[Rfam]
RNA sequence: UGGUGAAGCAACCUAACCAUUAUCAAUGGUUGCACUCGGUUAUAUCGUGGGUAGUAUCAAAUGCUACCUUAGACACUUGGUUGUCAAUGGUAUAACGUGAGGAUGGGUUAAAUGCCCA
Numbered sequence: 001u002g003g004u005g006a007a008g009c010a011a012c013c014u015a016a017c018c019a020u021u022a023u024c025a026a027u028g029g030u031u032g033c034a035c036u037c038g039g040u041u042a043u044a045u046c047g048u049g050g051g052u053a054g055u056a057u058c059a060a061a062u063g064c065u066a067c068c069u070u071a072g073a074c075a076c077u078u079g080g081u082u083g084u085c086a087a088u089g090g091u092a093u094a095a096c097g098u099g100a101g102g103a104u105g106g107g108u109u110a111a112a113u114g115c116c117c118a
Stems, first nucleotide, its partner, number of pairs: 001019004008033006035101004039096008049069008072085004104118005
The record is a 118-nucleotide sequence from Chengkuizengella marina, which matches "epsC RNA" in Rfam. The family has 30 seed sequences and 450 matches in Rfam 15.1. The family's consensus secondary structure is taken from published work.